[Rfam]
RNA sequence: UUUCUAGUGGCUGUGGCAGAUGAUCAAAACUGUCUGACACACUUUGAGCUUGUUAUAGAAAGAAAGUCUAACCUAUUCCGGUGUUCUCCUCCAGGAGAAAAGCCGUUAUAUAGACUUAAACAGU
Numbered sequence: 001u002u003u004c005u006a007g008u009g010g011c012u013g014u015g016g017c018a019g020a021u022g023a024u025c026a027a028a029a030c031u032g033u034c035u036g037a038c039a040c041a042c043u044u045u046g047a048g049c050u051u052g053u054u055a056u057a058g059a060a061a062g063a064a065a066g067u068c069u070a071a072c073c074u075a076u077u078c079c080g081g082u083g084u085u086c087u088c089c090u091c092c093a094g095g096a097g098a099a100a101a102g103c104c105g106u107u108a109u110a111u112a113g114a115c116u117u118a119a120a121c122a123g124u
Base pairs, nucleotide, nucleotide: 011046012041013040014039015038017036018035019034020033021032022031064117065116066115067114068113069112070111074110075109076108079105080104081103082102085098086097087096088095